[Rfam]
RNA sequence: UCUAGCAGUGAUGAUGCUCUUGCCCUCACUGAGAACUGUAAUGAGUUCUGUAAUGAGAGCUUUUAAAGUACUCAUUUGCUCUGAGCCAGA
Numbered sequence: 001u002c003u004a005g006c007a008g009u010g011a012u013g014a015u016g017c018u019c020u021u022g023c024c025c026u027c028a029c030u031g032a033g034a035a036c037u038g039u040a041a042u043g044a045g046u047u048c049u050g051u052a053a054u055g056a057g058a059g060c061u062u063u064u065a066a067a068g069u070a071c072u073c074a075u076u077u078g079c080u081c082u083g084a085g086c087c088a089g090a
Base pairs, nucleotide, nucleotide: 001090002089003088005086006085
RNA: Small nucleolar RNA SNORD103/SNORD85
Organism: Pogona vitticeps